[Rfam]
RNA sequence: GAAUAAUUUGUCAUAAAUAGUCGUAUAAUGUUGGGGAUAUGGCCCAUAAGUUUCUACCGAGCUGCCGAAAAUAGCUUGACUACGUUAAUUAUGAAAGAAUAG
Numbered sequence: 001g002a003a004u005a006a007u008u009u010g011u012c013a014u015a016a017a018u019a020g021u022c023g024u025a026u027a028a029u030g031u032u033g034g035g036g037a038u039a040u041g042g043c044c045c046a047u048a049a050g051u052u053u054c055u056a057c058c059g060a061g062c063u064g065c066c067g068a069a070a071a072u073a074g075c076u077u078g079a080c081u082a083c084g085u086u087a088a089u090u091a092u093g094a095a096a097g098a099a100u101a102g
Stems, first nucleotide, its partner, number of pairs: 018088001020086001022084004029049001032046004058078007
RNA: Purine riboswitch aptamer
Organism: Peribacillus saganii